Record summary
The family of this 176-nucleotide sequence from Shewanella salipaludis is "Lysine riboswitch aptamer". The family's consensus secondary structure is taken from published work. Gene Ontology term of the family: lysine biosynthetic process. The match comes from Rfam's covariance-model search (88 bits).
RNA sequence: AGGCACAGAAGAGGAGCGUUAACUAGGUAGUAAGUCUGAGGAGCACACACUCCGGCGACGGCUUAUGAGGGAGAUUAACGCCGAGGUAUUUCAGUGAGUCGUGCGCUGAGGUAUCGGUCGUUCAGGUUGAAUCCUGGCGAUUGUCACCUGAUUUUUGGUGGAGAGCUUCUGGUGAC
Numbered sequence: 001a002g003g004c005a006c007a008g009a010a011g012a013g014g015a016g017c018g019u020u021a022a023c024u025a026g027g028u029a030g031u032a033a034g035u036c037u038g039a040g041g042a043g044c045a046c047a048c049a050c051u052c053c054g055g056c057g058a059c060g061g062c063u064u065a066u067g068a069g070g071g072a073g074a075u076u077a078a079c080g081c082c083g084a085g086g087u088a089u090u091u092c093a094g095u096g097a098g099u100c101g102u103g104c105g106c107u108g109a110g111g112u113a114u115c116g117g118u119c120g121u122u123c124a125g126g127u128u129g130a131a132u133c134c135u136g137g138c139g140a141u142u143g144u145c146a147c148c149u150g151a152u153u154u155u156u157g158g159u160g161g162a163g164a165g166c167u168u169c170u171g172g173u174g175a176c
Stems, first nucleotide, its partner, number of pairs: 006171006016081007024073001030066007085115012116142006123136004144161005150155001